[Rfam]
Nucleotides: 155
Base pairs, nucleotide, nucleotide: 012140013139014138018045019044020043021042022041023040024039046136047135048134049133050132051131056066067121068120069119075097076096077095078094079093080092081091100115101114102113103112
Number, partner (000 for none) and nucleotide at each position: 001000c002000g003000c004000g005000g006000u007000g008000c009000g010000a011000g012140g013139c014138c015000g016000a017000g018045u019044c020043c021042g022041u023040c024039c025000a026000g027000g028000u029000c030000c031000a032000u033000c034000c035000g036000a037000c038000c039024g040023g041022a042021c043020g044019g045018a046136g047135c048134c049133g050132g051131g052000g053000a054000c055000c056066c057000a058000a059000g060000g061000u062000u063000c064000c065000a066056g067121g068120g069119g070000u071000g072000a073000a074000u075097c076096g077095g078094c079093g080092c081091g082000u083000c084000c085000g086000c087000a088000g089000g090000g091081c092080g093079c094078g095077c096076c097075g098000u099000a100115g101114g102113g103112c104000u105000c106000u107000u108000c109000c110000a111000u112103g113102c114101c115100c116000g117000a118000a119069u120068c121067c122000g123000u124000c125000a126000g127000c128000u129000a130000a131051c132050c133049c134048g135047g136046u137000a138014g139013g140012c141000g142000u143000c144000a145000u146000g147000g148000g149000a150000g151000a152000c153000a154000a155000g